The family of this 133-nucleotide RNA sequence from Phyllostomus discolor is "Small nucleolar RNA SNORA38". A search with the family's covariance model found it, with a score of 101 bits. Gene Ontology terms of the family: nucleolus, RNA processing and Cajal body. About the family: ACA38 is a member of the H/ACA class of snoRNA that guide the sites of modification of uridines to pseudouridines. The family's RNA type in Rfam is H/ACA-box small nucleolar RNA.
RNA sequence: CCCUCUUAUAAAGAUGUGUAGGUUUCCGUGUCUUUGGACACCUAAGAACUAACUGGAGGCCAAGAAACGUGGACUUGGAGAAACCUGCGGCCAGCUUGCUCCCUGCAGGCUCAAGAACAACCAUCCCACACAG
Dot-bracket structure: .(((((.........((((.((...))..........)))).............)))))...........(((.(.................(((((((.....)))))))...........)))).......